[Rfam]
RNA sequence: UCUGAUGCUGUAAACAUCCCCGACUGGAAGCUCUGUAUGUCACGUAGGCUUUCAGUCCGAUGUUUGCUGCAGCCGG
Numbered sequence: 001u002c003u004g005a006u007g008c009u010g011u012a013a014a015c016a017u018c019c020c021c022g023a024c025u026g027g028a029a030g031c032u033c034u035g036u037a038u039g040u041c042a043c044g045u046a047g048g049c050u051u052u053c054a055g056u057c058c059g060a061u062g063u064u065u066g067c068u069g070c071a072g073c074c075g076g
Base pairs, nucleotide, nucleotide: 002075004073006071008069010067011066012065013064014063015062016061017060018059023056024055025054026053027052028051029050030049031048032047

This 76-nucleotide RNA from Scleropages formosus belongs to the Rfam family "mir-30 microRNA precursor family". For this family Rfam cites "Identification of novel genes coding for small expressed RNAs" (Lagos-Quintana et al., Science, 2001). NCBI's taxonomy places the organism under Eukaryota, Metazoa, Osteoglossocephalai, Osteoglossidae, Scleropages. This family consists of the mammalian microRNA (miRNA) precursor mir-30a. Animal miRNAs are transcribed as ~70nt precursors and subsequently processed by the Dicer enzyme to give a ~22nt product.